[Rfam]
RNA sequence: AACAACUGAUAACCCGAUAGGUAGAAUGAAGGAGUAACGCCCUGAAAUGCCUACUCUGAUACUUCGACCGGCUUCGGCUGUAAUGGCUGGAGUCUGGAGCUCGAUAAAGUCGGCGGAAGUUUGUCGUAACAGCGUGGCAACACGGCUGACGAAAGUGCAGUAGAGGUACUGUAUGCAGAUGACACGCCGGGAUGUCUAUAA
Numbered sequence: 001a002a003c004a005a006c007u008g009a010u011a012a013c014c015c016g017a018u019a020g021g022u023a024g025a026a027u028g029a030a031g032g033a034g035u036a037a038c039g040c041c042c043u044g045a046a047a048u049g050c051c052u053a054c055u056c057u058g059a060u061a062c063u064u065c066g067a068c069c070g071g072c073u074u075c076g077g078c079u080g081u082a083a084u085g086g087c088u089g090g091a092g093u094c095u096g097g098a099g100c101u102c103g104a105u106a107a108a109g110u111c112g113g114c115g116g117a118a119g120u121u122u123g124u125c126g127u128a129a130c131a132g133c134g135u136g137g138c139a140a141c142a143c144g145g146c147u148g149a150c151g152a153a154a155g156u157g158c159a160g161u162a163g164a165g166g167u168a169c170u171g172u173a174u175g176c177a178g179a180u181g182a183c184a185c186g187c188c189g190g191g192a193u194g195u196c197u198a199u200a201a
Base pairs, nucleotide, nucleotide: 018053019052020051021050022049023048031043032042034040055192056191057190064104065103066102067101068096070094071093072092073091074090075089076088077087078086079085080084111189112188113187114186115185119180120179121178122177123176124175125151126150127149132146133145155174156173157172158171159170160169161168162167

Shown here is a 201-nucleotide RNA sequence, a member of the family "Group II catalytic intron D1-D4-5". Rfam 15.1 lists 720 matches to the family in 418 species. For this family Rfam cites "Group II introns: structure and catalytic versatility of large natural ribozymes" (Lehmann and Schmidt, Crit Rev Biochem Mol Biol, 2003). Group II introns are found in rRNA, tRNA and mRNA of organelles in fungi, plants and protists, and also in mRNA in bacteria.